[Rfam]
Annotation: A member of the RNA family "SAM riboswitch aptamer (S box leader)" from Bacillus sp. MUM 13, 112 nucleotides long. Pairs were carried over by alignment from the consensus structure, which is taken from published work.
RNA sequence: CUCUUAUCGAGAGAGGUGGAGGGAUGUGCCCUAUGAAACCCGGCAACCGGCAAGGAUUUCCUUGAAAAGGUGCCAAUUCACAAAAAGCUGAUAAAGCUUUUAGAGAUGAGAG
Dot-bracket structure: ((((((((....(.(((...(((.[[[[)))......))))((((.((..((..........))....))))))...(]]]]((((((.......))))))..)))))))))